Acido-Lenti-1 RNA: a 46-nucleotide RNA sequence from Chthoniobacter flavus. The source organism's lineage runs through Bacteria, Spartobacteria, Chthoniobacterales, Chthoniobacteraceae and Chthoniobacter flavus. Rfam classes the family as a small RNA. The base pairs follow the family's consensus structure, which is taken from published work.
[Rfam]
RNA sequence: CCGGUGGCUCACGCCACCGGCUAAUUUCUGGCCUCCCUCCGGGAGG
Number, nucleotide and partner (000 for none) at each position: 001c020002c019003g018004g017005u016006g015007g014008c013009u000010c000011a000012c000013g008014c007015c006016a005017c004018c003019g002020g001021c000022u000023a000024a000025u000026u000027u000028c000029u000030g000031g000032c000033c045034u044035c043036c042037c041038u000039c000040c000041g037042g036043g035044a034045g033046g000